[Rfam]
RNA sequence: CCCUGCCCGGCUGAAGAGGGACGGCUCCACCCAAGGUGCAAACCGGGCCCGUUCGUGGGCUCCCGGUGAACCUCUCAGGUUCCGAUGACAGAUGGGGAGAC
Numbered sequence: 001c002c003c004u005g006c007c008c009g010g011c012u013g014a015a016g017a018g019g020g021a022c023g024g025c026u027c028c029a030c031c032c033a034a035g036g037u038g039c040a041a042a043c044c045g046g047g048c049c050c051g052u053u054c055g056u057g058g059g060c061u062c063c064c065g066g067u068g069a070a071c072c073u074c075u076c077a078g079g080u081u082c083c084g085a086u087g088a089c090a091g092a093u094g095g096g097g098a099g100a101c
Base pairs, nucleotide, nucleotide: 006096007095008094009093011091012090013089020027021026029080030079031078033075036074038072042067043066044065045064046063047062
RNA: Glycine riboswitch aptamer
Organism: Streptomyces sp. SID8354